[Rfam]
RNA sequence: UUAGCUAUUUUAGAUAAGUUUGUGUUCAUGAGAUUCAUGGGUGCAAACACACUGUUUGUAUCUAUGAUGGCUAAGGAUGUUUGAGAUGACAUGUCCGCCACAUAGAUGAAAAUCUAUAGUGGCUUUUUUAUUAGAAAGUUUUAAGGCCCACUGUAGAUCGUCUACGGCGGGCUUUUUUUAUACAUAAA
Numbered sequence: 001u002u003a004g005c006u007a008u009u010u011u012a013g014a015u016a017a018g019u020u021u022g023u024g025u026u027c028a029u030g031a032g033a034u035u036c037a038u039g040g041g042u043g044c045a046a047a048c049a050c051a052c053u054g055u056u057u058g059u060a061u062c063u064a065u066g067a068u069g070g071c072u073a074a075g076g077a078u079g080u081u082u083g084a085g086a087u088g089a090c091a092u093g094u095c096c097g098c099c100a101c102a103u104a105g106a107u108g109a110a111a112a113u114c115u116a117u118a119g120u121g122g123c124u125u126u127u128u129u130a131u132u133a134g135a136a137a138g139u140u141u142u143a144a145g146g147c148c149c150a151c152u153g154u155a156g157a158u159c160g161u162c163u164a165c166g167g168c169g170g171g172c173u174u175u176u177u178u179u180a181u182a183c184a185u186a187a188a
Base pairs, nucleotide, nucleotide: 001074002073003072004071005070006069007068011064012063013062014061015060016059018048019047020046021045022044023043024042025041026040027039028038029037078146080144081143083141084140085139087137091132097123098122099121100120101119103116104115105114147171148170149169151167152166153165